[Rfam]
Record summary:
Shown here is a 33-nucleotide RNA, a member of the family "L31-Firmicutes ribosomal protein leader". The family is grouped with related families in Rfam's "Ribosomal Protein L31 Leader clan". For this family Rfam cites "Discovery of 20 novel ribosomal leader candidates in bacteria and archaea" (Eckert and Weinberg, BMC Microbiol, 2020). The family's consensus secondary structure is taken from published work. By type it is a cis-regulatory leader.
RNA sequence: CUUUGAUCGACAUACGGAUCAAGGCGGAAGGAG
Numbered sequence: 001c002u003u004u005g006a007u008c009g010a011c012a013u014a015c016g017g018a019u020c021a022a023g024g025c026g027g028a029a030g031g032a033g
Base pairs, nucleotide, nucleotide: 001024002023003022004021005020007017008016009015